[Rfam]
RNA sequence: ACAAGAAACCACGGGAGUGCGCGCGCCGCGCACUGAGAGGCCCCAGCGCAGAACGCGCAUGGAACGAGGGGCGACCGUUUGAACCUGUCCGGGUCAUGCCGGCGAAGGGAAGGAGCCUUUUCAUCAUG
Numbered sequence: 001a002c003a004a005g006a007a008a009c010c011a012c013g014g015g016a017g018u019g020c021g022c023g024c025g026c027c028g029c030g031c032a033c034u035g036a037g038a039g040g041c042c043c044c045a046g047c048g049c050a051g052a053a054c055g056c057g058c059a060u061g062g063a064a065c066g067a068g069g070g071g072c073g074a075c076c077g078u079u080u081g082a083a084c085c086u087g088u089c090c091g092g093g094u095c096a097u098g099c100c101g102g103c104g105a106a107g108g109g110a111a112g113g114a115g116c117c118u119u120u121u122c123a124u125c126a127u128g
Stems, first nucleotide, its partner, number of pairs: 009113002011078004017033005040072005084108003089102004